[Rfam]
Description
The record is a 62-nucleotide RNA from Medicago truncatula, which matches "MIR5291 microRNA precursor family" in Rfam. Rfam links the family to the GO terms RISC complex and miRNA-mediated post-transcriptional gene silencing. Rfam 15.1 lists 168 matches to the family in 5 species.
RNA sequence: GAUGGAUCAAAUCCAAUCCAUUUACAAUUUUUUGUUGUUGGAUGGAUUGGAUGGAUUUUGUA
Numbered sequence: 001g002a003u004g005g006a007u008c009a010a011a012u013c014c015a016a017u018c019c020a021u022u023u024a025c026a027a028u029u030u031u032u033u034g035u036u037g038u039u040g041g042a043u044g045g046a047u048u049g050g051a052u053g054g055a056u057u058u059u060g061u062a
Stems, first nucleotide, its partner, number of pairs: 004058005011052012025037004